RNA: pntA sRNA
Organism: Pelagibacterales bacterium SAG-MED44
RNA sequence: CUUUAUGGAUAAUGAAAACCAUAAGAAAACGUGGAAUAAUUUCACAAAAUUUGUAUUGUGGG
Numbered sequence: 001c002u003u004u005a006u007g008g009a010u011a012a013u014g015a016a017a018a019c020c021a022u023a024a025g026a027a028a029a030c031g032u033g034g035a036a037u038a039a040u041u042u043c044a045c046a047a048a049a050u051u052u053g054u055a056u057u058g059u060g061g062g
Base pairs, nucleotide, nucleotide: 002025003024004023005022006021007020008019030062032060033059034057035056036054037053038052039051